RNA: Cyanobacteria heterocyst sRNA
Organism: Nostoc punctiforme
RNA sequence: GGGAUGUUGUUAUGCACUGGAUUUAUAUAGAGGUUUGGCGGUGAGCCAAACCUUUU
Numbered sequence: 001g002g003g004a005u006g007u008u009g010u011u012a013u014g015c016a017c018u019g020g021a022u023u024u025a026u027a028u029a030g031a032g033g034u035u036u037g038g039c040g041g042u043g044a045g046c047c048a049a050a051c052c053u054u055u056u
Base pairs, nucleotide, nucleotide: 002018003017005016006015007014030054031053032052033051034050035049036048037047038046039045